[Rfam]
RNA sequence: CACUAUCAUCAGGGGUUUCUUUCGGCCUUCAGCUGUUUAGACUGUAGGCCGGCGGAAACUACUUGCUGAUGGUG
Number, nucleotide and partner (000 for none) at each position: 001c000002a000003c000004u000005a070006u069007c068008a067009u000010c065011a064012g063013g062014g060015g059016u058017u057018u056019c055020u054021u000022u052023c051024g050025g049026c048027c047028u046029u000030c044031a043032g042033c000034u000035g000036u000037u000038u000039a000040g000041a000042c032043u031044g030045u000046a028047g027048g026049c025050c024051g023052g022053c000054g020055g019056a018057a017058a016059c015060u014061a000062c013063u012064u011065g010066c000067u008068g007069a006070u005071g000072g000073u000074g000
RNA: mir-2796 microRNA precursor family